[Rfam]
RNA sequence: CCCAGGGCGCCGCCCUGGGCUGGCUACGGCCGGCCCUUCGGGCCU
Number, nucleotide and partner (000 for none) at each position: 001c019002c018003c017004a016005g015006g014007g013008c012009g000010c000011c000012g008013c007014c006015c005016u004017g003018g002019g001020c000021u000022g000023g000024c000025u000026a000027c000028g000029g000030c000031c000032g044033g043034c042035c041036c040037u000038u000039c000040g036041g035042g034043c033044c032045u000
The record is a 45-nucleotide RNA sequence from Pseudobythopirellula maris, which matches "Acido-Lenti-1 RNA" in Rfam. It is annotated as a small RNA. The organism belongs to Pseudobythopirellula, within Bacteria. A search with the family's covariance model found it, with a score of 38 bits.